Source information: Shown here is a 135-nucleotide RNA sequence from Bos taurus, a member of the family "Small nucleolar RNA SNORA70". From the family's description: snoRNA U70 seems to be exclusive to mammals and is a member of the H/ACA class of snoRNA which contain H (ANANNA) and ACA box motifs. H/ACA box snoRNAs are involved in the conversion of uridines to pseudouridines (5-ribosyluracil) a constituent of structural RNAs (transfer, ribosomal, small nuclear, and small nucleolar). NCBI's taxonomy places the organism under Eukaryota, Deuterostomia, Craniata, Dipnotetrapodomorpha, Bos. The family's RNA type in Rfam is H/ACA-box small nucleolar RNA. The family's consensus secondary structure was predicted with PFOLD. A reference for the family is Charette and Gray (2000), "Pseudouridine in RNA: what, where, how, and why", IUBMB Life.
[Rfam]
RNA sequence: UUGCAGCCAAUUGAGCUGACCUUCCUCUUUUCCCCAUGGGGGCCCAGUGUGCAAUAGCCGCAAACAGCGGCCUCCUUGGUGGUGUGCGCAGCCUGUGGCCUGUAUGGGCUGCCCUAAGGGACCUUGGAGACAACC
Numbered sequence: 001u002u003g004c005a006g007c008c009a010a011u012u013g014a015g016c017u018g019a020c021c022u023u024c025c026u027c028u029u030u031u032c033c034c035c036a037u038g039g040g041g042g043c044c045c046a047g048u049g050u051g052c053a054a055u056a057g058c059c060g061c062a063a064a065c066a067g068c069g070g071c072c073u074c075c076u077u078g079g080u081g082g083u084g085u086g087c088g089c090a091g092c093c094u095g096u097g098g099c100c101u102g103u104a105u106g107g108g109c110u111g112c113c114c115u116a117a118g119g120g121a122c123c124u125u126g127g128a129g130a131c132a133a134c135c
Base pairs, nucleotide, nucleotide: 002053003052004051005050019048020047025042026041027040028039078123079122080121089111090110091109092108093107094106